[Rfam]
RNA sequence: UCCCCGGGAAGGCCCGGGGAUGCGCUGAUCCUGUCGACGGGACGACCCGA
Dot-bracket structure: ((((((((....)))))))).................((((....)))).
Shown here is a 50-nucleotide sequence from Microbacterium sp. Yaish 1, a member of the family "Guanidine-II riboswitch aptamer (mini-ykkC)". The source organism's lineage runs through Bacteria, Actinomycetota, Actinomycetes, Micrococcales and Microbacterium. From the family's description: Simpler in structure and has fewer highly conserved nucleotide positions than the ykkC-yxkD leader. Despite this each of its two stem-loop structures directly bind free guanidine. Therefore, mini-ykkC RNA motif represents a distinct class of guanidine-sensing RNAs. Its crystal structure was also determined. The family's consensus secondary structure is taken from published work. Its family is annotated with regulation of gene expression in the Gene Ontology.